A member of the RNA family "SAM riboswitch aptamer (S box leader)" from Virgibacillus necropolis, 111 nucleotides long. From the family's description: The SAM riboswitch is found upstream of a number of genes which code for proteins involved in methionine or cysteine biosynthesis in Gram-positive bacteria. Its family is annotated with regulation of gene expression in the Gene Ontology.

[Rfam]
RNA sequence: UUCUUAUCAAGAGAGACGGAGGGAAUGGCCCUACGAUGUCUCAGCAACCAGGCUGUUAAGGCCACGGUGCUAAUUCCAAUAGGUAGUUACUCUUUACCUAGAAGAUAAGAA
Number, nucleotide and partner (000 for none) at each position: 001u111002u110003c109004u108005u107006a106007u105008c104009a000010a000011g000012a000013g042014a041015g040016a039017c038018g000019g000020a000021g031022g030023g029024a000025a000026u078027g077028g076029c023030c022031c021032u000033a000034c000035g000036a000037u000038g017039u016040c015041u014042c013043a071044g070045c069046a068047a000048c067049c066050a000051g063052g062053c061054u000055g000056u000057u000058a000059a000060g000061g053062c052063c051064a000065c000066g049067g048068u046069g045070c044071u043072a000073a000074u000075u103076c028077c027078a026079a000080u100081a099082g098083g097084u096085a095086g000087u000088u000089a000090c000091u000092c000093u000094u000095u085096a084097c083098c082099u081100a080101g000102a000103a075104g008105a007106u006107a005108a004109g003110a002111a001
The match comes from Rfam's covariance-model search (96 bits).